Record summary
Shown here is an 86-nucleotide RNA sequence from Dorcoceras hygrometricum, a member of the family "Small nucleolar RNA R44/J54/Z268 family".

Nucleotides: 086
Base pairs, nucleotide, nucleotide: 002085003084004083005082006081
Number, partner (000 for none) and nucleotide at each position: 001000a002085a003084u004083g005082c006081a007000u008000g009000u010000a011000a012000u013000g014000a015000u016000a017000a018000g019000a020000a021000c022000a023000g024000a025000c026000a027000g028000g029000g030000u031000c032000a033000u034000u035000a036000g037000a038000a039000u040000u041000u042000c043000u044000u045000a046000a047000c048000a049000a050000a051000a052000u053000g054000a055000u056000g057000a058000u059000u060000u061000a062000u063000a064000u065000u066000u067000g068000a069000g070000a071000a072000u073000c074000u075000c076000u077000c078000u079000g080000a081006u082005g083004u084003a085002u086000u

The source organism's lineage runs through Eukaryota, Streptophyta, Tracheophyta, eudicotyledons and Dorcoceras.
Pairs were carried over by alignment from the consensus structure, which was predicted with PFOLD.
It scores 57 bits against the family's covariance model.